[Rfam]
RNA sequence: CUAUAUGCACCCUGUAGAACCGAAUUUGUGUGACACUCGGACAAUCGCAAAUUCGCAUCUACGGGACUACAUGGG
Numbered sequence: 001c002u003a004u005a006u007g008c009a010c011c012c013u014g015u016a017g018a019a020c021c022g023a024a025u026u027u028g029u030g031u032g033a034c035a036c037u038c039g040g041a042c043a044a045u046c047g048c049a050a051a052u053u054c055g056c057a058u059c060u061a062c063g064g065g066a067c068u069a070c071a072u073g074g075g
Base pairs, nucleotide, nucleotide: 002073003072004071006069007068010065011064012063016060017059018058021055022054023053024052025051026050027049028048029047030046
RNA: mir-10 microRNA precursor family
Organism: Hemibagrus wyckioides